[Rfam]
RNA: glmS glucosamine-6-phosphate activated ribozyme aptamer
Organism: Anaerostipes sp. 494a
RNA sequence: UUAGUGUACGAAGCGCCAUGCACCUUCCUGAUACGGAAACAGCAGAUUAAUUCUCUGCAAUCGGAAGGUUAACGAGGUGGAAAGUGAUCGAAAAAUUCGGCGGAUGCUUUCCCGUAGCCCCGGUCUAUGUGAUAUACUGCACAAAGCCAUGAGUAAUCAUGAAACAAAAGCAGUAUAAUCCGGGCAA
Numbered sequence: 001u002u003a004g005u006g007u008a009c010g011a012a013g014c015g016c017c018a019u020g021c022a023c024c025u026u027c028c029u030g031a032u033a034c035g036g037a038a039a040c041a042g043c044a045g046a047u048u049a050a051u052u053c054u055c056u057g058c059a060a061u062c063g064g065a066a067g068g069u070u071a072a073c074g075a076g077g078u079g080g081a082a083a084g085u086g087a088u089c090g091a092a093a094a095a096u097u098c099g100g101c102g103g104a105u106g107c108u109u110u111c112c113c114g115u116a117g118c119c120c121c122g123g124u125c126u127a128u129g130u131g132a133u134a135u136a137c138u139g140c141a142c143a144a145a146g147c148c149a150u151g152a153g154u155a156a157u158c159a160u161g162a163a164a165c166a167a168a169a170g171c172a173g174u175a176u177a178a179u180c181c182g183g184g185c186a187a
Stems, first nucleotide, its partner, number of pairs: 022069007030061001079112005088100004113129005133177007148161005